[Rfam]
RNA: Small nucleolar RNA SNORD115
Organism: Pan troglodytes
RNA sequence: CAGUCAGUGUCGAGGACCUUAUAUUGUUCUGAAGAGAGGUGGUGACUUAAAAAUCAUGCCCAAUAGGACUACGCUGAGGCCC
Numbered sequence: 001c002a003g004u005c006a007g008u009g010u011c012g013a014g015g016a017c018c019u020u021a022u023a024u025u026g027u028u029c030u031g032a033a034g035a036g037a038g039g040u041g042g043u044g045a046c047u048u049a050a051a052a053a054u055c056a057u058g059c060c061c062a063a064u065a066g067g068a069c070u071a072c073g074c075u076g077a078g079g080c081c082c
Base pairs, nucleotide, nucleotide: 003080004079005076006075008073009072